Background:
The family of this 169-nucleotide sequence from Digitaria exilis is "MIR2118 microRNA precursor family". Rfam 15.1 lists 2,377 matches to the family in 45 species. Gene Ontology terms of the family: RISC complex and miRNA-mediated post-transcriptional gene silencing.
RNA sequence: GUCAGGAAGAGGAAGAAACAGAGGGUAUAAGAGCAUUGGGAGUGAGAAUAUUGAGGAAAGCCAAGUUUCGUGGUUUCGUCCUAGCAGUGGGGCAGGAAAUUUAAUUUGUUGUUUCCCGAUGCCUCUCAUUCCUAUUGCUCUUAAGCCCUCCUUCCUCUUCCUUUUGGCU
Numbered sequence: 001g002u003c004a005g006g007a008a009g010a011g012g013a014a015g016a017a018a019c020a021g022a023g024g025g026u027a028u029a030a031g032a033g034c035a036u037u038g039g040g041a042g043u044g045a046g047a048a049u050a051u052u053g054a055g056g057a058a059a060g061c062c063a064a065g066u067u068u069c070g071u072g073g074u075u076u077c078g079u080c081c082u083a084g085c086a087g088u089g090g091g092g093c094a095g096g097a098a099a100u101u102u103a104a105u106u107u108g109u110u111g112u113u114u115c116c117c118g119a120u121g122c123c124u125c126u127c128a129u130u131c132c133u134a135u136u137g138c139u140c141u142u143a144a145g146c147c148c149u150c151c152u153u154c155c156u157c158u159u160c161c162u163u164u165u166g167g168c169u
Stems, first nucleotide, its partner, number of pairs: 009160005015154003021150003026145001028143008037134011049121003053117001055116002058114004